[Rfam]
RNA sequence: CGGCCGCGAGCGCCGAGUCCGCGGGCACGCGGAGCCGGGGACCCACAUGCGCACGAAGGCGCAGAUCCCCAGGGGUGAGUCGGUGCGCCUGCGUCAUCACAGCAGACCGUAGUGCGGCGAACGGGCCGUGGUGCGGCGUGGUGCGCCGGGCGGACCGUAGGGCGGCUUCUUCCAGCCCGAACCCGUCAGCUAACCCGGUAGGCGCACACGGAAGGAGAG
Numbered sequence: 001c002g003g004c005c006g007c008g009a010g011c012g013c014c015g016a017g018u019c020c021g022c023g024g025g026c027a028c029g030c031g032g033a034g035c036c037g038g039g040g041a042c043c044c045a046c047a048u049g050c051g052c053a054c055g056a057a058g059g060c061g062c063a064g065a066u067c068c069c070c071a072g073g074g075g076u077g078a079g080u081c082g083g084u085g086c087g088c089c090u091g092c093g094u095c096a097u098c099a100c101a102g103c104a105g106a107c108c109g110u111a112g113u114g115c116g117g118c119g120a121a122c123g124g125g126c127c128g129u130g131g132u133g134c135g136g137c138g139u140g141g142u143g144c145g146c147c148g149g150g151c152g153g154a155c156c157g158u159a160g161g162g163c164g165g166c167u168u169c170u171u172c173c174a175g176c177c178c179g180a181a182c183c184c185g186u187c188a189g190c191u192a193a194c195c196c197g198g199u200a201g202g203c204g205c206a207c208a209c210g211g212a213a214g215g216a217g218a219g
Base pairs, nucleotide, nucleotide: 011204012203013202014201018033019032020031021030022029023028034199035198036197037196038195039194044072073184074183075182081157082156083155084154160178161177162176163175